[Rfam]
RNA sequence: UCACAAUGAUGCAUGUUUUUCCAACCAUUCGCAGUUUCCCCCAGAAUGGACUGGUCCGCAUGUUGGAUUGACCUUCCUUGGAUGUCUGAGUGA
Numbered sequence: 001u002c003a004c005a006a007u008g009a010u011g012c013a014u015g016u017u018u019u020u021c022c023a024a025c026c027a028u029u030c031g032c033a034g035u036u037u038c039c040c041c042c043a044g045a046a047u048g049g050a051c052u053g054g055u056c057c058g059c060a061u062g063u064u065g066g067a068u069u070g071a072c073c074u075u076c077c078u079u080g081g082a083u084g085u086c087u088g089a090g091u092g093a
Stems, first nucleotide, its partner, number of pairs: 001093004047058004
The family of this 93-nucleotide RNA from Scyliorhinus torazame is "Small nucleolar RNA SNORD14". A reference for the family is Samarsky et al. (1996), "An essential domain in Saccharomyces cerevisiae U14 snoRNA is absent in vertebrates, but conserved in other yeasts", Nucleic Acids Res. U14 small nucleolar RNA (U14 snoRNA) is required for early cleavages of eukaryotic precursor rRNAs. In yeasts, this molecule possess a stem-loop region (known as the Y-domain) which is essential for function. A similar structure, but with a different consensus sequence, is found in plants, but is absent in vertebrates. A search with the family's covariance model found it, with a score of 70 bits.